A member of the RNA family "ASpks TB sRNA" from Streptomyces sp. A73, 75 nucleotides long. It scores 68 bits against the family's covariance model. NCBI's taxonomy places the organism under Bacteria, Bacillati, Actinomycetes, Streptomycetaceae, Streptomyces. The family has 77 seed sequences and 9,052 matches in Rfam 15.1. The family's consensus secondary structure is taken from published work.
RNA sequence: CUUGCUGGAUCCGAGCCACACCGGCUCCCCGUCCGGGCGGUCCUGGCCGUAGACGGUCAGGACCGCCUGAGCCUC
Numbered sequence: 001c002u003u004g005c006u007g008g009a010u011c012c013g014a015g016c017c018a019c020a021c022c023g024g025c026u027c028c029c030c031g032u033c034c035g036g037g038c039g040g041u042c043c044u045g046g047c048c049g050u051a052g053a054c055g056g057u058c059a060g061g062a063c064c065g066c067c068u069g070a071g072c073c074u075c
Stems, first nucleotide, its partner, number of pairs: 014026004032070002038065002043060003047056003
Dot-bracket structure: .............((((.....)))).....((....((...(((.(((....))).)))...))...)).....